A member of the RNA family "Small nucleolar RNA Z278" from Camphora micrantha, 115 nucleotides long. Rfam 15.1 lists 1,130 matches to the family in 214 species. The family's RNA type in Rfam is C/D-box small nucleolar RNA.
RNA sequence: GCCACUGAUGAUUUAUCCUAGUUUUGGAGGUGUGGUGAACCCAAGACCCUGUUUUCAGGGAGAACCUACUUGGGGUAGCCACAUUUCACAUGACAUUAAUGGAUCUGUCUGAGGC
Numbered sequence: 001g002c003c004a005c006u007g008a009u010g011a012u013u014u015a016u017c018c019u020a021g022u023u024u025u026g027g028a029g030g031u032g033u034g035g036u037g038a039a040c041c042c043a044a045g046a047c048c049c050u051g052u053u054u055u056c057a058g059g060g061a062g063a064a065c066c067u068a069c070u071u072g073g074g075g076u077a078g079c080c081a082c083a084u085u086u087c088a089c090a091u092g093a094c095a096u097u098a099a100u101g102g103a104u105c106u107g108u109c110u111g112a113g114g115c
Base pairs, nucleotide, nucleotide: 001115002114003113047060048059049058050057051056

NCBI's taxonomy places the organism under Eukaryota, Streptophyta, Tracheophyta, Magnoliopsida, Camphora. For this family Rfam cites "The high diversity of snoRNAs in plants: identification and comparative study of 120 snoRNA genes from Oryza sativa" (Chen et al., Nucleic Acids Res, 2003). snoZ278 is a C/D box small nucleolar RNA. Its methylation guide targets have not been reported.